[Rfam]
RNA sequence: UUGGUUGCCUGGCUCUGAGAACUGAAUUCUAUAGGCCGUGAGCUCUAGCAGAUACCCUAGGGACUCAGUUCUGGUGCCUGGCUGGGCUGC
Dot-bracket structure: .......((.(((....((((((((........((...................))........))))))))...))).)).........
mir-146 microRNA precursor family: a 90-nucleotide RNA from Ochotona princeps. The family has 33 seed sequences and 1,617 matches in Rfam 15.1. Lineage of the source: Eukaryota > Teleostomi > Dipnotetrapodomorpha > Euarchontoglires > Ochotona. Gene Ontology terms of the family: RISC complex and miRNA-mediated post-transcriptional gene silencing. For this family Rfam cites "Identification of tissue-specific microRNAs from mouse" (Lagos-Quintana et al., Curr Biol, 2002).